[Rfam]
RNA sequence: UACACAUAUAGAGGUUGCAACCAAUAGAAACUUACGUUGAGCAGAAAGCACUGCAUUGAAACGCAAGUAGGGAGCGGUUGCCGAAAGACUUUUGCUUGCUUUUACAAAAGUUUUGGGCCAACAAGAAAUACUUGUUGGACUGUCGCGAGGUUAUUGCGGAGUGCUAUUCGUAUU
Numbered sequence: 001u002a003c004a005c006a007u008a009u010a011g012a013g014g015u016u017g018c019a020a021c022c023a024a025u026a027g028a029a030a031c032u033u034a035c036g037u038u039g040a041g042c043a044g045a046a047a048g049c050a051c052u053g054c055a056u057u058g059a060a061a062c063g064c065a066a067g068u069a070g071g072g073a074g075c076g077g078u079u080g081c082c083g084a085a086a087g088a089c090u091u092u093u094g095c096u097u098g099c100u101u102u103u104a105c106a107a108a109a110g111u112u113u114u115g116g117g118c119c120a121a122c123a124a125g126a127a128a129u130a131c132u133u134g135u136u137g138g139a140c141u142g143u144c145g146c147g148a149g150g151u152u153a154u155u156g157c158g159g160a161g162u163g164c165u166a167u168u169c170g171u172a173u174u
Stems, first nucleotide, its partner, number of pairs: 008167004017081006025073001031067003035063004085114010115141002118138008143159006
Shown here is a 174-nucleotide RNA sequence from Lactococcus fujiensis, a member of the family "Lysine riboswitch aptamer". Pairs were carried over by alignment from the consensus structure, which is taken from published work. The match comes from Rfam's covariance-model search (91 bits).